[Rfam]
RNA: Small nucleolar RNA SNORA26
Organism: Peromyscus maniculatus
Nucleotides: 115
Base pairs, nucleotide, nucleotide: 002048003047004046005045006044007043008042009041014036015035016032018029055109057107060103067094069092070091071090072086073085074084076083077082
Number, partner (000 for none) and nucleotide at each position: 001000a002048u003047g004046u005045c006044c007043u008042u009041u010000a011000a012000a013000a014036u015035u016032u017000a018029u019000a020000g021000u022000a023000u024000u025000u026000u027000a028000g029018g030000a031000g032016a033000u034000u035015a036014a037000c038000a039000c040000a041009g042008a043007a044006g045005g046004g047003u048002a049000c050000a051000g052000g053000a054000u055109g056000c057107c058000u059000c060103a061000u062000g063000a064000a065000a066000c067094u068000c069092a070091a071090a072086g073085a074084g075000a076083c077082u078000g079000g080000a081000c082077a083076g084074u085073u086072c087000c088000u089000a090071u091070u092069u093000u094067g095000a096000u097000c098000u099000u100000g101000u102000c103060u104000a105000u106000u107057g108000a109055c110000a111000u112000a113000g114000c115000u